[Rfam]
RNA sequence: CCAGGCGGCCGGGCGAUCGCGGCGGUGCUUGCACCGGCGAGGAAAGUCCGGGCUCCACGAAACGACGGUGCCGGAUAACGUCCGGCGGCUUCCCUCGCGGGGAGUCAGGGACAGUGCAACAGAGAGCAGGUCACGAAGACUUCGGUCCCGUGAACAGUGAAAGGGUGCGGUAAGAGCGCACCGCGCCCCCGGCAACGGCGGGCGGCGAGGUAAACCCCACCGGGAGCAAGACCGAAUAGGGGCGGCGCGCGACUCACGUCGCAGGGCAUGUUUCUGCCCAGUCGCCCGGGUUGGUUGCUUGAGGCGUCCGGCAACGGCCGCCCUAGAGGAAUGAUCGCCCAUCCGCCCGCGCGUCCCGCAAGGGAUACGGCGGCGGUGGACAGAACCCGGCUUACAGGCCGCCUGGCAAA
Numbered sequence: 001c002c003a004g005g006c007g008g009c010c011g012g013g014c015g016a017u018c019g020c021g022g023c024g025g026u027g028c029u030u031g032c033a034c035c036g037g038c039g040a041g042g043a044a045a046g047u048c049c050g051g052g053c054u055c056c057a058c059g060a061a062a063c064g065a066c067g068g069u070g071c072c073g074g075a076u077a078a079c080g081u082c083c084g085g086c087g088g089c090u091u092c093c094c095u096c097g098c099g100g101g102g103a104g105u106c107a108g109g110g111a112c113a114g115u116g117c118a119a120c121a122g123a124g125a126g127c128a129g130g131u132c133a134c135g136a137a138g139a140c141u142u143c144g145g146u147c148c149c150g151u152g153a154a155c156a157g158u159g160a161a162a163g164g165g166u167g168c169g170g171u172a173a174g175a176g177c178g179c180a181c182c183g184c185g186c187c188c189c190c191g192g193c194a195a196c197g198g199c200g201g202g203c204g205g206c207g208a209g210g211u212a213a214a215c216c217c218c219a220c221c222g223g224g225a226g227c228a229a230g231a232c233c234g235a236a237u238a239g240g241g242g243c244g245g246c247g248c249g250c251g252a253c254u255c256a257c258g259u260c261g262c263a264g265g266g267c268a269u270g271u272u273u274c275u276g277c278c279c280a281g282u283c284g285c286c287c288g289g290g291u292u293g294g295u296u297g298c299u300u301g302a303g304g305c306g307u308c309c310g311g312c313a314a315c316g317g318c319c320g321c322c323c324u325a326g327a328g329g330a331a332u333g334a335u336c337g338c339c340c341a342u343c344c345g346c347c348c349g350c351g352c353g354u355c356c357c358g359c360a361a362g363g364g365a366u367a368c369g370g371c372g373g374c375g376g377u378g379g380a381c382a383g384a385a386c387c388c389g390g391c392u393u394a395c396a397g398g399c400c401g402c403c404u405g406g407c408a409a410a
Base pairs, nucleotide, nucleotide: 001406002405003404004403005402006401007400008399009398010397011395012339013338014337015336016335017334018333020039021038023036024035025034026033027032044393045392046391048390049389050388051387052386053226054225055224056223061273062272066222067221068220069219070218071085072084073083074082075081086108087106088105089104090103091102092101093100094099109217110216114215115214116211117210131156132152133151134150135149138147139146140145164182165181166180167179168178169177183206184204185203186202187201188200189198190197191196230296231295232294233293240287241286242285243284244283245282264279265278266277267276268275303322304321305320306319308317309316310315
A member of the RNA family "Bacterial RNase P class A" from Sphingobium nicotianae, 410 nucleotides long.
It is annotated as a ribozyme.
Taxonomically the source falls in Sphingobium (Bacteria, Pseudomonadati, Alphaproteobacteria, Sphingomonadales).
A search with the family's covariance model found it, with a score of 254 bits.